[Rfam]
RNA sequence: UUGUCUUUGUCUGUGCUUUGUCUGCUCCCUUGGCUCAGCUCUAACAGGGUAGUCUGGCAGGACACACAGCAAUUUCCCACUCCUACUAGGAGGGUAUUCCCAAGAAUAGGGCUAGCUCUUAAAGGCACGAGAGGAUAAU
Numbered sequence: 001u002u003g004u005c006u007u008u009g010u011c012u013g014u015g016c017u018u019u020g021u022c023u024g025c026u027c028c029c030u031u032g033g034c035u036c037a038g039c040u041c042u043a044a045c046a047g048g049g050u051a052g053u054c055u056g057g058c059a060g061g062a063c064a065c066a067c068a069g070c071a072a073u074u075u076c077c078c079a080c081u082c083c084u085a086c087u088a089g090g091a092g093g094g095u096a097u098u099c100c101c102a103a104g105a106a107u108a109g110g111g112c113u114a115g116c117u118c119u120u121a122a123a124g125g126c127a128c129g130a131g132a133g134g135a136u137a138a139u
Stems, first nucleotide, its partner, number of pairs: 002064006010057002024053003028049005077134002080131003086124002090120006098111003102107001